[Rfam]
Shown here is a 255-nucleotide RNA from Cavia porcellus, a member of the family "Voltage-gated potassium-channel Kv1.4 IRES".
The literature on the family includes a 2004 paper in J Biol Chem by Jang et al., "Structurally distinct elements mediate internal ribosome entry within the 5'-noncoding region of a voltage-gated potassium channel mRNA".
Gene Ontology term of the family: ribosome binding.

RNA sequence: GAGGCCCACAAGCGUGAGGCUGUGUGUCUGGACCAGCGAAGGUCUGGAGAGCAGCACUGAAUCCUUGAGCCGAAAGAGCAUGGGGUGUGCUGAUUUAAAAACAGAAAAUGCAAAGUUGGACUGAAAAUAUCUUUAGUCUUCCAAGCAAUCUGCUUAAGGGUUCCAAACUUACCUUCCUUUGGUGAGCAGAGAAGCUGCCCUAUUUUUUUCCCAUCUUUAUUUCUUAUUUUCUCUUUCUCUUUCUCUUUCACUUUC
Numbered sequence: 001g002a003g004g005c006c007c008a009c010a011a012g013c014g015u016g017a018g019g020c021u022g023u024g025u026g027u028c029u030g031g032a033c034c035a036g037c038g039a040a041g042g043u044c045u046g047g048a049g050a051g052c053a054g055c056a057c058u059g060a061a062u063c064c065u066u067g068a069g070c071c072g073a074a075a076g077a078g079c080a081u082g083g084g085g086u087g088u089g090c091u092g093a094u095u096u097a098a099a100a101a102c103a104g105a106a107a108a109u110g111c112a113a114a115g116u117u118g119g120a121c122u123g124a125a126a127a128u129a130u131c132u133u134u135a136g137u138c139u140u141c142c143a144a145g146c147a148a149u150c151u152g153c154u155u156a157a158g159g160g161u162u163c164c165a166a167a168c169u170u171a172c173c174u175u176c177c178u179u180u181g182g183u184g185a186g187c188a189g190a191g192a193a194g195c196u197g198c199c200c201u202a203u204u205u206u207u208u209u210c211c212c213a214u215c216u217u218u219a220u221u222u223c224u225u226a227u228u229u230u231c232u233c234u235u236u237c238u239c240u241u242u243c244u245c246u247u248u249c250a251c252u253u254u255c
Base pairs, nucleotide, nucleotide: 046244047243048242049241050240067217068216069215072212075209076208077207078206080203081202082201083200084199085198086197087196089195090194091193094190095189096188102152103151104150105149109147110146111145116144117143118142119141120140123138124137168186169185170184171183172182173181
Rfam's curators write: This family represents the Kv1.4 voltage-gated potassium-channel internal ribosome entry site (IRES). This region has been shown to mediate internal ribosome entry in cells derived from brain, heart, and skeletal muscle, tissues known to express Kv1.4 mRNA species.